[Rfam]
This 231-nucleotide sequence from Pseudoduganella namucuonensis belongs to the Rfam family "HNH endonuclease-associated RNA and ORF (HEARO) RNA". Pairs were carried over by alignment from the consensus structure, which is taken from published work. The literature on the family includes a 2009 paper in Nature by Weinberg et al., "Exceptional structured noncoding RNAs revealed by bacterial metagenome analysis".
RNA sequence: GUCAACCACCCCGGCCUAAAGGCCGGAGCGUGUAAAGGCUCGGUUGACCAGACUUAGCGCAAAACGUCGCGCUACGUUGCAACGAAGUACAAGACGCACCUUGGGAUGCUUCCUCAGUCCUAAGCUCUGCAAGCGGCAGGAGCAGACAAGCAUAGGGUACGCACGAAACGGCCUGUCGCAAAGUUCGCAAGAACCUAAGCUGCGUUGCAACACUGUCGAGGGGAGCGGCAC
Numbered sequence: 001g002u003c004a005a006c007c008a009c010c011c012c013g014g015c016c017u018a019a020a021g022g023c024c025g026g027a028g029c030g031u032g033u034a035a036a037g038g039c040u041c042g043g044u045u046g047a048c049c050a051g052a053c054u055u056a057g058c059g060c061a062a063a064a065c066g067u068c069g070c071g072c073u074a075c076g077u078u079g080c081a082a083c084g085a086a087g088u089a090c091a092a093g094a095c096g097c098a099c100c101u102u103g104g105g106a107u108g109c110u111u112c113c114u115c116a117g118u119c120c121u122a123a124g125c126u127c128u129g130c131a132a133g134c135g136g137c138a139g140g141a142g143c144a145g146a147c148a149a150g151c152a153u154a155g156g157g158u159a160c161g162c163a164c165g166a167a168a169c170g171g172c173c174u175g176u177c178g179c180a181a182a183g184u185u186c187g188c189a190a191g192a193a194c195c196u197a198a199g200c201u202g203c204g205u206u207g208c209a210a211c212a213c214u215g216u217c218g219a220g221g222g223g224a225g226c227g228g229c230a231c
Stems, first nucleotide, its partner, number of pairs: 001048007010028001012025002015022002029038001031036001051217003056073005076211009086201001096130002100124008110225006133179008